sRNA-Xcc1: an 87-nucleotide sequence from Saliniradius amylolyticus.
Rfam 15.1 lists 421 matches to the family in 299 species.
On this family, see Chen et al., RNA Biol 2011: "sRNA-Xcc1, an integron-encoded transposon- and plasmid-transferred trans-acting sRNA, is under the positive control of the key virulence regulators HrpG and HrpX of Xanthomonas campestris pathovar campestris".
Pairs were carried over by alignment from the consensus structure, which was predicted with RNAalifold.

RNA sequence: GUCGGGAGGGGUAGGUCAUAUAAGACCCGUAAGGGAAAAACCUGCCGCAGCUCUGUGAGGCUGUUUCGAACCUCCCGACACCCUAAU
Numbered sequence: 001g002u003c004g005g006g007a008g009g010g011g012u013a014g015g016u017c018a019u020a021u022a023a024g025a026c027c028c029g030u031a032a033g034g035g036a037a038a039a040a041c042c043u044g045c046c047g048c049a050g051c052u053c054u055g056u057g058a059g060g061c062u063g064u065u066u067c068g069a070a071c072c073u074c075c076c077g078a079c080a081c082c083c084u085a086a087u
Stems, first nucleotide, its partner, number of pairs: 001079009011045004016040001026035003047064006